Rfam assigns this 144-nucleotide RNA from Limnochorda pilosa to the family "c-di-AMP riboswitch aptamer (ydaO/yuaA leader)".
The organism belongs to Limnochorda, within Bacteria.
Gene Ontology terms of the family: cyclic-di-AMP binding and regulation of gene expression.
A search with the family's covariance model found it, with a score of 89 bits.

RNA sequence: CCAACUGAAUCGCUGAGUCGCGCCCCGCCGGGGCGCGAGCGGGGGACCCACCUCUUGGGGUGAAUCUCCGGGCGAGCCCGGAGAGGGGCGACUCUUGCCGUCCCAACCCGUCAGCUAACCCCGUAAGCGUUGCAAGGGAGUUCA
Numbered sequence: 001c002c003a004a005c006u007g008a009a010u011c012g013c014u015g016a017g018u019c020g021c022g023c024c025c026c027g028c029c030g031g032g033g034c035g036c037g038a039g040c041g042g043g044g045g046a047c048c049c050a051c052c053u054c055u056u057g058g059g060g061u062g063a064a065u066c067u068c069c070g071g072g073c074g075a076g077c078c079c080g081g082a083g084a085g086g087g088g089c090g091a092c093u094c095u096u097g098c099c100g101u102c103c104c105a106a107c108c109c110g111u112c113a114g115c116u117a118a119c120c121c122c123g124u125a126a127g128c129g130u131u132g133c134a135a136g137g138g139a140g141u142u143c144a
Base pairs, nucleotide, nucleotide: 011129012128013127014126018038019037020036021035022034023033024032039124040123041122042121043120044119049057050056058109059108060107066083067082068081069080086103087102088101089100